Notes
The family of this 290-nucleotide sequence from Oenanthe oenanthe is "7SK RNA". Rfam classes the family as a non-coding RNA gene. The literature on the family includes a 2002 paper in Curr Biol by Blencowe, "Transcription: surprising role for an elusive small nuclear RNA". The organism belongs to Oenanthe, within Eukaryota. It scores 147 bits against the family's covariance model.

Nucleotides: 290
Base pairs, nucleotide, nucleotide: 001109002108003107006102008100009099010098011097013094014093018091019090024088025087028084029083030082031081033079035074037070038069042067043066044065045064046062047061117171118170119168121166122165123140124139125138126137128136129135141162142161143160148158149157150156197238198237199236200235201234202233209229212226215224216223217222255290256289257288261283264278265277266276267275268274
Number, partner (000 for none) and nucleotide at each position: 001109g002108g003107a004000u005000a006102u007000a008100a009099g010098g011097g012000u013094a014093a015000u016000c017000u018091g019090g020000c021000u022000g023000u024088g025087a026000g027000a028084u029083c030082u031081g032000a033079c034000a035074u036000g037070c038069c039000c040000u041000u042067g043066g044065u045064u046062g047061u048000a049000u050000g051000g052000g053000u054000u055000g056000a057000u058000c059000u060000g061047a062046c063000u064045g065044a066043c067042c068000u069038g070037g071000c072000u073000a074035g075000c076000u077000u078000a079033g080000g081031c082030a083029g084028g085000g086000g087025u088024u089000c090019c091018c092000u093014u094013u095000c096000u097011c098010c099009c100008u101000c102006a103000a104000c105000a106000u107003u108002c109001c110000a111000u112000g113000u114000g115000u116000g117171u118170u119168c120000c121166u122165c123140c124139u125138g126137a127000u128136g129135c130000u131000g132000u133000g134000u135129g136128c137126u138125u139124a140123g141162u142161u143160a144000a145000u146000g147000a148158g149157g150156a151000c152000a153000g154000c155000c156150u157149c158148c159000c160143u161142a162141a163000u164000a165122g166121a167000c168119g169000u170118g171117g172000u173000a174000c175000u176000a177000u178000u179000c180000a181000u182000u183000g184000g185000u186000c187000a188000a189000g190000g191000g192000u193000g194000g195000a196000u197238c198237c199236c200235u201234g202233c203000u204000g205000g206000g207000a208000u209229c210000u211000c212226u213000a214000a215224g216223u217222a218000a219000g220000c221000u222217u223216g224215u225000a226212g227000a228000u229209g230000a231000a232000u233202g234201u235200a236199g237198g238197g239000u240000a241000g242000a243000c244000a245000a246000g247000u248000c249000a250000c251000a252000u253000c254000c255290a256289a257288a258000u259000g260000a261283g262000a263000a264278g265277c266276u267275g268274c269000a270000u271000g272000c273000a274268g275267c276266a277265g278264u279000c280000u281000a282000c283261c284000a285000g286000u287000u288257u289256u290255u